[Rfam]
RNA sequence: AAUGAGACUUCCCCGAACCUGACUGUUACGGGGGCUGCGGUAGUAGGAGUAACUCGCAGCGGAAGCAUCGCAUCGGCUGAAAAAGGCCGGAGGGAGCUUUC
Numbered sequence: 001a002a003u004g005a006g007a008c009u010u011c012c013c014c015g016a017a018c019c020u021g022a023c024u025g026u027u028a029c030g031g032g033g034g035c036u037g038c039g040g041u042a043g044u045a046g047g048a049g050u051a052a053c054u055c056g057c058a059g060c061g062g063a064a065g066c067a068u069c070g071c072a073u074c075g076g077c078u079g080a081a082a083a084a085g086g087c088c089g090g091a092g093g094g095a096g097c098u099u100u101c
Stems, first nucleotide, its partner, number of pairs: 011033005034060006061101006069094001073090005
The family of this 101-nucleotide RNA sequence is "dinG RNA". It is one of the family's seed sequences. Rfam classes the family as a small RNA. The base pairs follow the family's consensus structure, which is taken from published work.